Small nucleolar RNA SNORD60: an 83-nucleotide RNA. Rfam's curators put it in the seed alignment.

[Rfam]
RNA sequence: AGCCUGUGAUGAAUUGCUUUCGUUUCUGACACCUCGUAUGAAAACUGCAUGUGCAGUCUGAUUAUUUUGCAAGUCUGAGGCUU
Numbered sequence: 001a002g003c004c005u006g007u008g009a010u011g012a013a014u015u016g017c018u019u020u021c022g023u024u025u026c027u028g029a030c031a032c033c034u035c036g037u038a039u040g041a042a043a044a045c046u047g048c049a050u051g052u053g054c055a056g057u058c059u060g061a062u063u064a065u066u067u068u069g070c071a072a073g074u075c076u077g078a079g080g081c082u083u
Stems, first nucleotide, its partner, number of pairs: 001082004044057005